Notes
mir-8364 microRNA precursor family: a 65-nucleotide RNA sequence from Pristionchus pacificus. It scores 67 bits against the family's covariance model.
RNA sequence: UCUUCAUUAUUCACACUCUCUCUCAUCGGUCAGAGAGGAGAGAGAGAGUGGGUGAAAUGAAGAGA
Dot-bracket structure: (((((((....(.((((((.((((...............)))).))))))...)..)))))))..